[Rfam]
Source information
Rfam assigns this 102-nucleotide sequence from Cicer arietinum to the family "MIR828 microRNA precursor family". Its family is annotated with miRNA-mediated post-transcriptional gene silencing and RISC complex in the Gene Ontology.
RNA sequence: GUAAUGUUUCUUGCUCAAAUGAGUAUUCCAAUCACACUUGCAAUUAGCAUGCAUAUCAUCAUUGUUGCUGGCUGAGAUGCUCAUUUGAUCAAGCAGUGUUAG
Numbered sequence: 001g002u003a004a005u006g007u008u009u010c011u012u013g014c015u016c017a018a019a020u021g022a023g024u025a026u027u028c029c030a031a032u033c034a035c036a037c038u039u040g041c042a043a044u045u046a047g048c049a050u051g052c053a054u055a056u057c058a059u060c061a062u063u064g065u066u067g068c069u070g071g072c073u074g075a076g077a078u079g080c081u082c083a084u085u086u087g088a089u090c091a092a093g094c095a096g097u098g099u100u101a102g
Stems, first nucleotide, its partner, number of pairs: 004099005010093004015088013029074002